Shown here is a 112-nucleotide RNA from Olea europaea, a member of the family "mir-399 microRNA precursor family".
Lineage of the source: Eukaryota > Embryophyta > Mesangiospermae > Oleeae > Olea europaea.
mir-399 was identified in both Arabidopsis thaliana and Oryza sativa computationally and was later experimentally verified. mir-399 is thought to target mRNAs coding for a phosphatase transporter. The mature sequence is excised from the 3' arm of the hairpin.

RNA sequence: GGAUGCAUUACUGGGCAAUUACUCCACUGGCAGUGGGCUACUUUGCUGCUAUAUAGGGAUUGGCUGUUUUAUUUAGCUCACUGCCAAGGGAGAUUUGCCCGGCAAUUCACCC
Numbered sequence: 001g002g003a004u005g006c007a008u009u010a011c012u013g014g015g016c017a018a019u020u021a022c023u024c025c026a027c028u029g030g031c032a033g034u035g036g037g038c039u040a041c042u043u044u045g046c047u048g049c050u051a052u053a054u055a056g057g058g059a060u061u062g063g064c065u066g067u068u069u070u071a072u073u074u075a076g077c078u079c080a081c082u083g084c085c086a087a088g089g090g091a092g093a094u095u096u097g098c099c100c101g102g103c104a105a106u107u108c109a110c111c112c
Stems, first nucleotide, its partner, number of pairs: 005108001007106003011102008022092004028086009